[Rfam]
RNA sequence: CUCUUCCAGCAAGGGCUUUACUCUAGGCAAUGAGGAUUCGUCCGAGCCAGGGUUAUUGCUAGUUGAAAACUAUCAACUGACUGCUCCUGAAUGGCCUUCGGGUCGUCAGGGAAUUUUUGGACAAACCAUUG
Number, nucleotide and partner (000 for none) at each position: 001c000002u000003c000004u000005u000006c000007c000008a000009g000010c000011a000012a000013g000014g000015g000016c000017u000018u000019u000020a053021c052022u051023c050024u049025a000026g048027g047028c046029a000030a000031u000032g000033a000034g043035g042036a041037u000038u000039c000040g000041u036042c035043c034044g000045a000046g028047c027048c026049a024050g023051g022052g021053u020054u000055a000056u000057u000058g000059c000060u000061a000062g000063u000064u000065g000066a000067a000068a000069a000070c000071u000072a000073u000074c000075a000076a000077c000078u000079g000080a000081c000082u000083g000084c000085u111086c110087c109088u108089g107090a000091a106092u105093g104094g103095c102096c101097u000098u000099c000100g000101g096102g095103u094104c093105g092106u091107c089108a088109g087110g086111g085112a000113a000114u000115u000116u000117u000118u000119g000120g000121a000122c000123a000124a000125a000126c000127c000128a000129u000130u000131g000
The record is a 131-nucleotide sequence from Zymoseptoria tritici, which matches "U4 spliceosomal RNA" in Rfam. A search with the family's covariance model found it, with a score of 86 bits. Taxonomically the source falls in Zymoseptoria tritici (Eukaryota, leotiomyceta, Dothideomycetidae, Zymoseptoria). U4 small nuclear RNA (U4 snRNA) is a component of the major U2-dependent spliceosome. Pairs were carried over by alignment from the consensus structure, which is taken from published work.